[Rfam]
RNA sequence: GGGAAAUGAGGAGUGGUCAUUUUUCGCUAAUUUUGCGAAAUGGGUGUCCAGCCCAAGCCUGUUACGACAAUAUGGUCAUCCCAAUUUAUACCAUCUGAUCCC
Numbered sequence: 001g002g003g004a005a006a007u008g009a010g011g012a013g014u015g016g017u018c019a020u021u022u023u024u025c026g027c028u029a030a031u032u033u034u035g036c037g038a039a040a041u042g043g044g045u046g047u048c049c050a051g052c053c054c055a056a057g058c059c060u061g062u063u064a065c066g067a068c069a070a071u072a073u074g075g076u077c078a079u080c081c082c083a084a085u086u087u088a089u090a091c092c093a094u095c096u097g098a099u100c101c102c
Base pairs, nucleotide, nucleotide: 001102002101003100004099014093015092016091017090023039024038025037026036027035042081043080044079045078046077047075048074060072061071062070
RNA: Small nucleolar RNA Z279/snoR105/snoR108
Organism: Spinacia oleracea